Shown here is a 97-nucleotide sequence from Salix brachista, a member of the family "Small nucleolar RNA snoR31/Z110/Z27". The match comes from Rfam's covariance-model search (56 bits). The family has 8 seed sequences and 571 matches in Rfam 15.1. Taxonomically the source falls in Salix (Eukaryota, Mesangiospermae, eudicotyledons, Gunneridae). On this family, see Barneche et al., J Mol Biol 2001: "Identification of 66 box C/D snoRNAs in Arabidopsis thaliana: extensive gene duplications generated multiple isoforms predicting new ribosomal RNA 2'-O-methylation sites". This family contains several related snoRNAs including R31, Z27 and Z110.
RNA sequence: CAAAAGAAAUGAUGAAAUCAGAAAAUCUUAGGACACCUUCUGACACUGUACAAUGCUGUGCUGUGUAUGAGAAAGAUUUUUGUUUCUGAUUGUUUUG
Number, nucleotide and partner (000 for none) at each position: 001c097002a096003a095004a094005a093006g000007a091008a000009a000010u000011g000012a000013u000014g000015a000016a000017a000018u000019c000020a000021g000022a000023a000024a000025a000026u000027c000028u000029u000030a000031g000032g000033a000034c000035a000036c000037c000038u000039u000040c000041u050042g049043a000044c000045a000046c000047u000048g000049u042050a041051c000052a000053a000054u000055g000056c000057u000058g000059u000060g000061c000062u000063g000064u000065g000066u000067a000068u000069g000070a000071g000072a000073a000074a000075g000076a000077u000078u000079u000080u000081u000082g000083u000084u000085u000086c000087u000088g000089a000090u000091u007092g000093u005094u004095u003096u002097g001